Source information
A member of the RNA family "Eukaryotic large subunit ribosomal RNA" from Australozyma monospora, 261 nucleotides of a longer RNA. Pairs were carried over by alignment from the consensus structure, which is taken from published work. Gene Ontology terms of the family: structural constituent of ribosome and ribosome.
[Rfam]
RNA sequence: GAGUCUAAUGAUUGUGCGAGUGUGCGGACGUCAGCUCCCAGCGCGUAAUGAAAGUAAGCCGCAGUUCCACUGCGCUCCGGGCACACAUUGGUGUGCCUGAGAAAGCACAGCUAUUAGGACCCGAAAGAUGGUGAACUAUACUUGGAUAGGGUGAAGCCAGAGGAAACUCUGGUGGAGGCUCGCAGCGGUUCUGACGUGCAAAUCGAUCGUCGAAUCUGAGUAUAGGGGCGAAAGACUAAUCGAACCAUCUAGUAGCUGGUU
Numbered sequence: 001g002a003g004u005c006u007a008a009u010g011a012u013u014g015u016g017c018g019a020g021u022g023u024g025c026g027g028a029c030g031u032c033a034g035c036u037c038c039c040a041g042c043g044c045g046u047a048a049u050g051a052a053a054g055u056a057a058g059c060c061g062c063a064g065u066u067c068c069a070c071u072g073c074g075c076u077c078c079g080g081g082c083a084c085a086c087a088u089u090g091g092u093g094u095g096c097c098u099g100a101g102a103a104a105g106c107a108c109a110g111c112u113a114u115u116a117g118g119a120c121c122c123g124a125a126a127g128a129u130g131g132u133g134a135a136c137u138a139u140a141c142u143u144g145g146a147u148a149g150g151g152u153g154a155a156g157c158c159a160g161a162g163g164a165a166a167c168u169c170u171g172g173u174g175g176a177g178g179c180u181c182g183c184a185g186c187g188g189u190u191c192u193g194a195c196g197u198g199c200a201a202a203u204c205g206a207u208c209g210u211c212g213a214a215u216c217u218g219a220g221u222a223u224a225g226g227g228g229c230g231a232a233a234g235a236c237u238a239a240u241c242g243a244a245c246c247a248u249c250u251a252g253u254a255g256c257u258g259g260u261u
Base pairs, nucleotide, nucleotide: 005117006116007115008114009113010112012110013109014108015107016106017105020044021043022042026038027037028036048055049054060074061073062072063071064070076102077101078099079098080097081096082095083094085092086091120259121258123256127249128248129247130246131245132244136225137224138223139222140221141220142219143218144217145216146215147213149181150180151179152178156173157172158171159170160169161168162167185210186209187208188207190206191205193204194203227237228236